The family of this 142-nucleotide RNA from Lathyrus oleraceus is "small nucleolar RNA snoR135". Rfam 15.1 lists 837 matches to the family in 220 species.
[Rfam]
RNA sequence: UAAGCAAGUUUAAUGUGUAUAUGUGUUAUGUUACGAUUACUGCACUCUUUCGAAAGUAUUUCCAUGCGAUAUCAAUAUGAGAGAAUGGGCAGUUGUGUUUCAUUUCAUGUUGAAAAUCACAAAAAUCAUUUUCUUUACAUCU
Numbered sequence: 001u002a003a004g005c006a007a008g009u010u011u012a013a014u015g016u017g018u019a020u021a022u023g024u025g026u027u028a029u030g031u032u033a034c035g036a037u038u039a040c041u042g043c044a045c046u047c048u049u050u051c052g053a054a055a056g057u058a059u060u061u062c063c064a065u066g067c068g069a070u071a072u073c074a075a076u077a078u079g080a081g082a083g084a085a086u087g088g089g090c091a092g093u094u095g096u097g098u099u100u101c102a103u104u105u106c107a108u109g110u111u112g113a114a115a116a117u118c119a120c121a122a123a124a125a126u127c128a129u130u131u132u133c134u135u136u137a138c139a140u141c142u
Base pairs, nucleotide, nucleotide: 004067005066006065008063015045016044017043018042019041079135080134081133082132083131084130085129086128087127088126093122094121095120